[Rfam]
RNA sequence: GUCUGUCAAGGGCAUCCCGCGCGAAAGCGCGGUGCGCAAAGUCAUCGGUCUAAAGGGCUUCGGUCCCAGGACGGCUGGACUGCCAGA
Numbered sequence: 001g002u003c004u005g006u007c008a009a010g011g012g013c014a015u016c017c018c019g020c021g022c023g024a025a026a027g028c029g030c031g032g033u034g035c036g037c038a039a040a041g042u043c044a045u046c047g048g049u050c051u052a053a054a055g056g057g058c059u060u061c062g063g064u065c066c067c068a069g070g071a072c073g074g075c076u077g078g079a080c081u082g083c084c085a086g087a
Stems, first nucleotide, its partner, number of pairs: 012037002017032006040081004045077001047075001048072003055066004